[Rfam]
RNA: Rhizobiales sRNA Atu_C8
RNA sequence: UAAGAAUAUCGAACUUCUUAUUGUGGUGGGAUCGCGCAUGGGCAGGAUGGUGUAACCAUCCGGCAUUAGCCGCCCCAUGCGCGACGACAGGCUCCUUGAAAAGGGGCCUUUUUUUAUGCCCUCAA
Numbered sequence: 001u002a003a004g005a006a007u008a009u010c011g012a013a014c015u016u017c018u019u020a021u022u023g024u025g026g027u028g029g030g031a032u033c034g035c036g037c038a039u040g041g042g043c044a045g046g047a048u049g050g051u052g053u054a055a056c057c058a059u060c061c062g063g064c065a066u067u068a069g070c071c072g073c074c075c076c077a078u079g080c081g082c083g084a085c086g087a088c089a090g091g092c093u094c095c096u097u098g099a100a101a102a103g104g105g106g107c108c109u110u111u112u113u114u115u116a117u118g119c120c121c122u123c124a125a
Stems, first nucleotide, its partner, number of pairs: 007028001009026001029121002032118001033083010045061006063070002087110001089109007